[Rfam]
Shown here is a 104-nucleotide sequence from Bacillus thermotolerans, a member of the family "SAM riboswitch aptamer (S box leader)".
Rfam links the family to the GO term regulation of gene expression.
Taxonomically the source falls in Bacillus (Bacteria, Bacillota, Caryophanales, Bacillaceae).
A search with the family's covariance model found it, with a score of 85 bits.
RNA sequence: GCCUUAUCGAGAGAAGCGGAGGGAACUGGCCCGUCGAUGCUUCAGCAACCGGCCUGUGCGGCCAAGGUGCUAACUCCAGCGGGAGCGAUCCCGAAAGAUGAGCG
Numbered sequence: 001g002c003c004u005u006a007u008c009g010a011g012a013g014a015a016g017c018g019g020a021g022g023g024a025a026c027u028g029g030c031c032c033g034u035c036g037a038u039g040c041u042u043c044a045g046c047a048a049c050c051g052g053c054c055u056g057u058g059c060g061g062c063c064a065a066g067g068u069g070c071u072a073a074c075u076c077c078a079g080c081g082g083g084a085g086c087g088a089u090c091c092c093g094a095a096a097g098a099u100g101a102g103c104g
Base pairs, nucleotide, nucleotide: 003102004101005100006099007098008097013043014042015041016040017039021032022031023030026079027078028077029076044071045070046069047068049067050066051063052062053061054060075096080093081092082091083090084089